[Rfam]
A member of the RNA family "Bacterial RNase P class A" from Finegoldia magna, 330 nucleotides long. Ribonuclease P (RNase P) is a ubiquitous endoribonuclease, found in archaea, bacteria and eukarya as well as chloroplasts and mitochondria. It is annotated as a ribozyme. A reference for the family is Frank and Pace (1998), "Ribonuclease P: unity and diversity in a tRNA processing ribozyme", Annu Rev Biochem. Lineage of the source: Bacteria > Bacillati > Peptoniphilaceae > Finegoldia > Finegoldia magna.
RNA sequence: UGACUAAAUCAGAUAAUCGCAUGAAUUCAUGAGGAAAGUCCGUGCACUAUAGAGCGAGGAUGCUGGAUAACGUCCAGUGGGGGCGACCCUAAGGCUAGUGCAACAGAGAUAUACCGCCAUUUAAUGGUAAGGGUGGAAAGGUAGGGUAAGAGCCUACCAGCAUAAAGGUGACUUUAUGGCUAUGUAAACCCCAUUCAGUGCAAAAUCAAAUAGGAAUAAAGACGGCUGCUCGUCGUCUCCGGUAGGUAGAUUGCUUGAACUAAUUGGUAACAAUUAGUCUAGAUAGAUGAUUAUCAAAUACAGAACACGGCUUAUAGAUUUGGUCAUAAA
Numbered sequence: 001u002g003a004c005u006a007a008a009u010c011a012g013a014u015a016a017u018c019g020c021a022u023g024a025a026u027u028c029a030u031g032a033g034g035a036a037a038g039u040c041c042g043u044g045c046a047c048u049a050u051a052g053a054g055c056g057a058g059g060a061u062g063c064u065g066g067a068u069a070a071c072g073u074c075c076a077g078u079g080g081g082g083g084c085g086a087c088c089c090u091a092a093g094g095c096u097a098g099u100g101c102a103a104c105a106g107a108g109a110u111a112u113a114c115c116g117c118c119a120u121u122u123a124a125u126g127g128u129a130a131g132g133g134u135g136g137a138a139a140g141g142u143a144g145g146g147u148a149a150g151a152g153c154c155u156a157c158c159a160g161c162a163u164a165a166a167g168g169u170g171a172c173u174u175u176a177u178g179g180c181u182a183u184g185u186a187a188a189c190c191c192c193a194u195u196c197a198g199u200g201c202a203a204a205a206u207c208a209a210a211u212a213g214g215a216a217u218a219a220a221g222a223c224g225g226c227u228g229c230u231c232g233u234c235g236u237c238u239c240c241g242g243u244a245g246g247u248a249g250a251u252u253g254c255u256u257g258a259a260c261u262a263a264u265u266g267g268u269a270a271c272a273a274u275u276a277g278u279c280u281a282g283a284u285a286g287a288u289g290a291u292u293a294u295c296a297a298a299u300a301c302a303g304a305a306c307a308c309g310g311c312u313u314a315u316a317g318a319u320u321u322g323g324u325c326a327u328a329a330a
Base pairs, nucleotide, nucleotide: 001326002325003324004323005322006321007320008319009318010317011315012295013294014293015292016291017290018289020031021030022029023028036313037312038311040310041309042308043307044306045200046199047198048197054230058196059195060194061193062192063077064076065075066074067073078092079090080089081088082087093191094190098189099188100185101184102183114132115131116128117127118126119125120124140158141157142156143155144154145153160180161178162177163176164175165174166173167172204252205251206250207249214240216238222236223235224234225233226232259278260277261276262275263274264273265272266271